[Rfam]
A member of the RNA family "c-di-AMP riboswitch aptamer (ydaO/yuaA leader)" from Sulfobacillus sp. hq2, 146 nucleotides long. The match comes from Rfam's covariance-model search (63 bits).
RNA sequence: GUGUUAAUUCCGUCGAAUCUCCUAAAAGGUGCUUCUUAGGAGUACGGAGAACCCGAUGCUUUUUGGGGUGAAUGAUUCCGCCGGGAGUCAAGAGGACCUGUCCUCUAACCCGUCAGCUAACUCCGAAGACGCAGAACAGGAGCGAA
Numbered sequence: 001g002u003g004u005u006a007a008u009u010c011c012g013u014c015g016a017a018u019c020u021c022c023u024a025a026a027a028g029g030u031g032c033u034u035c036u037u038a039g040g041a042g043u044a045c046g047g048a049g050a051a052c053c054c055g056a057u058g059c060u061u062u063u064u065g066g067g068g069u070g071a072a073u074g075a076u077u078c079c080g081c082c083g084g085g086a087g088u089c090a091a092g093a094g095g096a097c098c099u100g101u102c103c104u105c106u107a108a109c110c111c112g113u114c115a116g117c118u119a120a121c122u123c124c125g126a127a128g129a130c131g132c133a134g135a136a137c138a139g140g141a142g143c144g145a146a
Base pairs, nucleotide, nucleotide: 011131012130013129014128019042020041021040022039023038024037025036045125046124047123048122049121054065055064066111067110068109074089075088076087077086092105093104094103095102